[Rfam]
RNA sequence: AUCACUUCUCAGUCUUUUGGCUAAGAUCAAGUAUAGUAUCUGUUUUUAUUGGUUUAAUAUCUGAUCCAUCCUCUAUCUGAGGACAAUAUAUUAAGUGGAUUUUUGGAACAGAGUGGUAGAAUAGGAGCUUGCUCCAUCCACUCCACACAUAGACCUGGUGUUGCAGUACCUCCAGGAGCAGUGCACCAAAA
Numbered sequence: 001a002u003c004a005c006u007u008c009u010c011a012g013u014c015u016u017u018u019g020g021c022u023a024a025g026a027u028c029a030a031g032u033a034u035a036g037u038a039u040c041u042g043u044u045u046u047u048a049u050u051g052g053u054u055u056a057a058u059a060u061c062u063g064a065u066c067c068a069u070c071c072u073c074u075a076u077c078u079g080a081g082g083a084c085a086a087u088a089u090a091u092u093a094a095g096u097g098g099a100u101u102u103u104u105g106g107a108a109c110a111g112a113g114u115g116g117u118a119g120a121a122u123a124g125g126a127g128c129u130u131g132c133u134c135c136a137u138c139c140a141c142u143c144c145a146c147a148c149a150u151a152g153a154c155c156u157g158g159u160g161u162u163g164c165a166g167u168a169c170c171u172c173c174a175g176g177a178g179c180a181g182u183g184c185a186c187c188a189a190a191a
Stems, first nucleotide, its partner, number of pairs: 007026003011022004048065005069083005113143001115141001119137001124135004148183003152179001154176005
Overview: Rfam assigns this 191-nucleotide RNA sequence from Castor canadensis to the family "U2 spliceosomal RNA". Its Rfam clan is "U2 clan". Its family is annotated with pre-mRNA branch point binding, mRNA branch site recognition and U2 snRNP in the Gene Ontology. U2 is a small nuclear RNA (snRNA) component of the spliceosome (involved in pre-mRNA splicing). Complementary binding between U2 snRNA (in an area lying towards the 5' end but 3' to hairpin I) and the branchpoint sequence (BPS) of the intron results the bulging out of an unpaired adenosine, on the BPS, which initiates a nucleophilic attack at the intronic 5' splice site, thus starting the first of two transesterification reactions that mediate splicing.